[Rfam]
This 172-nucleotide RNA from Synechocystis sp. PCC 6803 belongs to the Rfam family "Ribosomal protein L10 leader". The source organism's lineage runs through Bacteria, Bacillati, Cyanobacteriota, Cyanophyceae and Synechocystis. Pairs were carried over by alignment from the consensus structure, which was predicted with CMfinder. About the family: This family is a putative r-protein leader autoregulatory structure found in B. subtilis and other low-GC Gram-positive bacteria.

RNA sequence: UUUAUUUAACUGGCUAUGCCAAAGACCGCAGGAGCAAUUAGGGUUGCUUAAUUAACCUGCCGAGGUUGAAGCCUGAAUCAAGAUUUGAGUUUGUUGGGGAUUUGCUUCCUUGACAGCUUUUGAUCCUCUGCUUCAGCCCCGGCGAUCGCCAAGGGGCAUUUUUAUUGUGUGU
Numbered sequence: 001u002u003u004a005u006u007u008a009a010c011u012g013g014c015u016a017u018g019c020c021a022a023a024g025a026c027c028g029c030a031g032g033a034g035c036a037a038u039u040a041g042g043g044u045u046g047c048u049u050a051a052u053u054a055a056c057c058u059g060c061c062g063a064g065g066u067u068g069a070a071g072c073c074u075g076a077a078u079c080a081a082g083a084u085u086u087g088a089g090u091u092u093g094u095u096g097g098g099g100a101u102u103u104g105c106u107u108c109c110u111u112g113a114c115a116g117c118u119u120u121u122g123a124u125c126c127u128c129u130g131c132u133u134c135a136g137c138c139c140c141g142g143c144g145a146u147c148g149c150c151a152a153g154g155g156g157c158a159u160u161u162u163u164a165u166u167g168u169g170u171g172u
Stems, first nucleotide, its partner, number of pairs: 028060005034047003136157005141150003